Clostridiales-1 RNA: a 161-nucleotide RNA sequence from Clostridiales bacterium CHKCI001. The organism belongs to Eubacteriales, within Bacteria. The base pairs follow the family's consensus structure, which is taken from published work.
[Rfam]
RNA sequence: UGAAAGUCCCAGACAGCAUCCAUAAAACAGAGCGUGUUUUACACGGGAUGGCUCACGGAUAUUGGACGGGCUAACCUGUAUGAACAAGGAGAGCGACCGCUCGGAUUGUGAAUACAGGUGGCGAUUGCGUGAGCACUAAAGUGCGGAGCAAUCGAUUUUCA
Numbered sequence: 001u002g003a004a005a006g007u008c009c010c011a012g013a014c015a016g017c018a019u020c021c022a023u024a025a026a027a028c029a030g031a032g033c034g035u036g037u038u039u040u041a042c043a044c045g046g047g048a049u050g051g052c053u054c055a056c057g058g059a060u061a062u063u064g065g066a067c068g069g070g071c072u073a074a075c076c077u078g079u080a081u082g083a084a085c086a087a088g089g090a091g092a093g094c095g096a097c098c099g100c101u102c103g104g105a106u107u108g109u110g111a112a113u114a115c116a117g118g119u120g121g122c123g124a125u126u127g128c129g130u131g132a133g134c135a136c137u138a139a140a141g142u143g144c145g146g147a148g149c150a151a152u153c154g155a156u157u158u159u160c161a
Base pairs, nucleotide, nucleotide: 001161002160003159004158005157006156007155008070009069010068015063016062018060019059020058021057023055025053028050029049033045034044035043036042074119075118076117077116078115079114080113081112084109085108086107087106091102092101093100094099122154123153124152125151126150127149128148133144134143135142136141